[Rfam]
RNA sequence: UUGAAAAUUCAUGUUUCAACUUCAUGGAUCUCUUGGUGGGUCAAGUUUAGGAAUAUACCAACCUGGAGGACUCCAAGCUGUUGAGCUAUCCAAAA
Numbered sequence: 001u002u003g004a005a006a007a008u009u010c011a012u013g014u015u016u017c018a019a020c021u022u023c024a025u026g027g028a029u030c031u032c033u034u035g036g037u038g039g040g041u042c043a044a045g046u047u048u049a050g051g052a053a054u055a056u057a058c059c060a061a062c063c064u065g066g067a068g069g070a071c072u073c074c075a076a077g078c079u080g081u082u083g084a085g086c087u088a089u090c091c092a093a094a095a
Stems, first nucleotide, its partner, number of pairs: 016084005023077001025075004029069005035063003039059003
Dot-bracket structure: ...............(((((..(.(((((((((.(((.(((...............))).))).)))))..)))).)..)))))...........
mir-490 microRNA precursor family: a 95-nucleotide RNA sequence from Monodelphis domestica. A reference for the family is Bentwich et al. (2005), "Identification of hundreds of conserved and nonconserved human microRNAs", Nat Genet.